The family of this 140-nucleotide sequence from Hevea brasiliensis is "Small nucleolar RNA snoR136". A reference for the family is Chen and Wu (2009), "Mining small RNA sequencing data: a new approach to identify small nucleolar RNAs in Arabidopsis", Nucleic Acids Res. The family's consensus secondary structure was predicted with mfold. Its family is annotated with nucleolus and RNA processing in the Gene Ontology. Rfam classes the family as an H/ACA-box small nucleolar RNA.
RNA sequence: UGGGCUUUAUUUAUUGUUAGUGUACAGCUUUACACUAAGUUUAAUAGUUAAUGCUGCUAUAAAUGAAGCCUAAAAAGUUGUUUCCCUCGCUAUCCAAGUCUGCAAUACAUGUUGCAUUUGGACGUCGGGAAACUACAUUU
Numbered sequence: 001u002g003g004g005c006u007u008u009a010u011u012u013a014u015u016g017u018u019a020g021u022g023u024a025c026a027g028c029u030u031u032a033c034a035c036u037a038a039g040u041u042u043a044a045u046a047g048u049u050a051a052u053g054c055u056g057c058u059a060u061a062a063a064u065g066a067a068g069c070c071u072a073a074a075a076a077g078u079u080g081u082u083u084c085c086c087u088c089g090c091u092a093u094c095c096a097a098g099u100c101u102g103c104a105a106u107a108c109a110u111g112u113u114g115c116a117u118u119u120g121g122a123c124g125u126c127g128g129g130a131a132a133c134u135a136c137a138u139u140u
Stems, first nucleotide, its partner, number of pairs: 001073001003070003008065006017059001025056004030051002034048003080133007088124002093122005102112003